[Rfam]
RNA sequence: GAGCUGUUAGUUUGGAUGGCUGUGCUCUGAGGAAAUACGGCUCAUAAAAUGUCAUUUCAUCAGGCCAUAGCUGUCCAAAUUAUCAAUGUUCG
Numbered sequence: 001g002a003g004c005u006g007u008u009a010g011u012u013u014g015g016a017u018g019g020c021u022g023u024g025c026u027c028u029g030a031g032g033a034a035a036u037a038c039g040g041c042u043c044a045u046a047a048a049a050u051g052u053c054a055u056u057u058c059a060u061c062a063g064g065c066c067a068u069a070g071c072u073g074u075c076c077a078a079a080u081u082a083u084c085a086a087u088g089u090u091c092g
Stems, first nucleotide, its partner, number of pairs: 008082017026064005032058005
A member of the RNA family "mir-77 microRNA precursor family" from Caenorhabditis remanei, 92 nucleotides long. The base pairs follow the family's consensus structure, which was predicted with RNAalifold. Rfam links the family to the GO terms miRNA-mediated post-transcriptional gene silencing and RISC complex. It is one of the family's seed sequences.